[Rfam]
The record is a 71-nucleotide RNA sequence from Cricetulus griseus, which matches "Small nucleolar RNA SNORD107" in Rfam.
Taxonomically the source falls in Cricetulus (Eukaryota, Euarchontoglires, Glires, Muroidea).
On this family, see Runte et al., Hum Mol Genet 2001: "The IC-SNURF-SNRPN transcript serves as a host for multiple small nucleolar RNA species and as an antisense RNA for UBE3A".
By type it is a C/D-box small nucleolar RNA.
RNA sequence: GGUUUAUGAUGACAAAGGACCUUGUCUGACCAUAAUGAUUUAAAGAAAUGAGCUUGAAAAAUUCUGAAAUC
Numbered sequence: 001g002g003u004u005u006a007u008g009a010u011g012a013c014a015a016a017g018g019a020c021c022u023u024g025u026c027u028g029a030c031c032a033u034a035a036u037g038a039u040u041u042a043a044a045g046a047a048a049u050g051a052g053c054u055u056g057a058a059a060a061a062u063u064c065u066g067a068a069a070u071c
Stems, first nucleotide, its partner, number of pairs: 001071004